[Rfam]
RNA sequence: AGAUCUUUUAAAAGAAGUCCAGAGAGGCUUAAAAGGGUGUAAGGCAAUAAAGGUAUAAGUAUGUUUUCAAUACCUUGAUUUGCUCUACCGAAAAACACCCUGAUACUAGUAGUCAGGGUGUUUUUUUAUA
Numbered sequence: 001a002g003a004u005c006u007u008u009u010a011a012a013a014g015a016a017g018u019c020c021a022g023a024g025a026g027g028c029u030u031a032a033a034a035g036g037g038u039g040u041a042a043g044g045c046a047a048u049a050a051a052g053g054u055a056u057a058a059g060u061a062u063g064u065u066u067u068c069a070a071u072a073c074c075u076u077g078a079u080u081u082g083c084u085c086u087a088c089c090g091a092a093a094a095a096c097a098c099c100c101u102g103a104u105a106c107u108a109g110u111a112g113u114c115a116g117g118g119u120g121u122u123u124u125u126u127u128a129u130a
Stems, first nucleotide, its partner, number of pairs: 003038007015030005043074002046071001048069001050067006091125014
Dot-bracket structure: ..(((((((.....(((((......))))).)))))))....((.(.(.((((((......)))))).).).))................((((((((((((((.......)))))))))))))).....

Rfam assigns this 130-nucleotide RNA sequence from Metabacillus harenarius to the family "PyrR binding site". Rfam classes the family as a cis-regulatory element. Lineage of the source: Bacteria > Bacillati > Bacilli > Bacillaceae > Metabacillus. Rfam's curators write: This family represents the PyrR binding site and terminator structure.